[Rfam]
The family of this 48-nucleotide RNA from Jiangella alkaliphila is "L31-Actinobacteria ribosomal protein leader". On this family, see Eckert and Weinberg, BMC Microbiol 2020: "Discovery of 20 novel ribosomal leader candidates in bacteria and archaea". Taxonomically the source falls in Jiangella (Bacteria, Bacillati, Actinomycetes, Jiangellaceae). Clan: Ribosomal Protein L31 Leader clan.

RNA sequence: CUGGCUCCGGUUCACGUCACGACAUCCCGUCGUGCCGACCCGGCGGCC
Numbered sequence: 001c002u003g004g005c006u007c008c009g010g011u012u013c014a015c016g017u018c019a020c021g022a023c024a025u026c027c028c029g030u031c032g033u034g035c036c037g038a039c040c041c042g043g044c045g046g047c048c
Stems, first nucleotide, its partner, number of pairs: 003048003007043004015037002018034006